[Rfam]
RNA sequence: AAAUAGUUAAGGAUAUGGGUUGUUCUAACUUUAGCCGGCUGAAGAGGACCCUAGUUGGUCCUAAAACGGCCUGAGGUAGAGGGGUUUUAGUCGGUAGGUCCGAGGACUUCUUCCUCGGGAAUCCGACACUACCCAGUCGUACGGACGGCUGGGUGACUUCUGAAGAUUUCCCCUCUUCCACGAAA
Numbered sequence: 001a002a003a004u005a006g007u008u009a010a011g012g013a014u015a016u017g018g019g020u021u022g023u024u025c026u027a028a029c030u031u032u033a034g035c036c037g038g039c040u041g042a043a044g045a046g047g048a049c050c051c052u053a054g055u056u057g058g059u060c061c062u063a064a065a066a067c068g069g070c071c072u073g074a075g076g077u078a079g080a081g082g083g084g085u086u087u088u089a090g091u092c093g094g095u096a097g098g099u100c101c102g103a104g105g106a107c108u109u110c111u112u113c114c115u116c117g118g119g120a121a122u123c124c125g126a127c128a129c130u131a132c133c134c135a136g137u138c139g140u141a142c143g144g145a146c147g148g149c150u151g152g153g154u155g156a157c158u159u160c161u162g163a164a165g166a167u168u169u170c171c172c173c174u175c176u177u178c179c180a181c182g183a184a185a
Stems, first nucleotide, its partner, number of pairs: 055184002058181002075179002078176002081172003090127005099119008129155001131154005

Shown here is a 185-nucleotide RNA sequence from Agrilus planipennis, a member of the family "R2 RNA element". Rfam's curators write: This family represents the 3' UTR region of the R2 retrotransposable element. The family has 15 seed sequences and 3,698 matches in Rfam 15.1. Its family is annotated with regulation of reverse transcription in the Gene Ontology. The match comes from Rfam's covariance-model search (49 bits). Rfam classes the family as a cis-regulatory element. Taxonomically the source falls in Agrilus (Eukaryota, Metazoa, Ecdysozoa, Pancrustacea).